[Rfam]
RNA: Small Cajal body specific RNA 3
RNA sequence: GCUGGGACUGGUUGUGUCCAGUCAUGGGCAAAAUAAAUAUUUUUUUUGUCCGCUGUUGCAGUCUUCCUAGAGCAAAAAAGUGGAGGUCUCUGUCUGCUUUGGGACAGCCAACUAAAUCAGAUCGUUCCCCUCCUUACAUG
Numbered sequence: 001g002c003u004g005g006g007a008c009u010g011g012u013u014g015u016g017u018c019c020a021g022u023c024a025u026g027g028g029c030a031a032a033a034u035a036a037a038u039a040u041u042u043u044u045u046u047u048g049u050c051c052g053c054u055g056u057u058g059c060a061g062u063c064u065u066c067c068u069a070g071a072g073c074a075a076a077a078a079a080g081u082g083g084a085g086g087u088c089u090c091u092g093u094c095u096g097c098u099u100u101g102g103g104a105c106a107g108c109c110a111a112c113u114a115a116a117u118c119a120g121a122u123c124g125u126u127c128c129c130c131u132c133c134u135u136a137c138a139u140g
Stems, first nucleotide, its partner, number of pairs: 004067003009061001011059002025052005035044001082133005090124001092122003096118001098116005